[Rfam]
RNA sequence: AGGAUUAAGUGGAGGUGUGAUCUCUUCACUUUUUCAAUUUAAAGUGAGAUUCAACUCCUCCAACUUAACCCG
Numbered sequence: 001a002g003g004a005u006u007a008a009g010u011g012g013a014g015g016u017g018u019g020a021u022c023u024c025u026u027c028a029c030u031u032u033u034u035c036a037a038u039u040u041a042a043a044g045u046g047a048g049a050u051u052c053a054a055c056u057c058c059u060c061c062a063a064c065u066u067a068a069c070c071c072g
Stems, first nucleotide, its partner, number of pairs: 007066003010062005017056001018054001023049002026047006
RNA: mir-1175 microRNA precursor family